The record is a 143-nucleotide sequence from Gulo gulo, which matches "small Cajal body-specific RNA 17" in Rfam. By type it is a small Cajal body RNA. scaRNAs are a specific class of small nuclear RNAs which localise to the Cajal bodies and guide the modification of RNA polymerase II transcribed spliceosomal RNAs U1, U2, U4, U5 and U12. Rfam 15.1 lists 262 matches to the family in 128 species. The family's consensus secondary structure is taken from published work. Lineage of the source: Eukaryota > Opisthokonta > Metazoa > Sarcopterygii > Gulo. The literature on the family includes a 2004 paper in Curr Biol by Tycowski et al., "Guide RNAs with 5' Caps and Novel Box C/D snoRNA-like Domains for Modification of snRNAs in Metazoa".
RNA sequence: GCAGGGAGUCCCCGGUGUAGCCCGCACAUGAGCUCGCAGUAUUUUCCUUAUAUGAUCGGGCCCCGUUGCUGGCGGCGCCGCUGGCCUGGAGCCUGAGAGGAUUAUGAAAACGCGUCAGGCGAAGUGUGGCUGGGGACCGGGGC
Numbered sequence: 001g002c003a004g005g006g007a008g009u010c011c012c013c014g015g016u017g018u019a020g021c022c023c024g025c026a027c028a029u030g031a032g033c034u035c036g037c038a039g040u041a042u043u044u045u046c047c048u049u050a051u052a053u054g055a056u057c058g059g060g061c062c063c064c065g066u067u068g069c070u071g072g073c074g075g076c077g078c079c080g081c082u083g084g085c086c087u088g089g090a091g092c093c094u095g096a097g098a099g100g101a102u103u104a105u106g107a108a109a110a111c112g113c114g115u116c117a118g119g120c121g122a123a124g125u126g127u128g129g130c131u132g133g134g135g136a137c138c139g140g141g142g143c
Stems, first nucleotide, its partner, number of pairs: 001143002008137006020130003056096006063089002068085007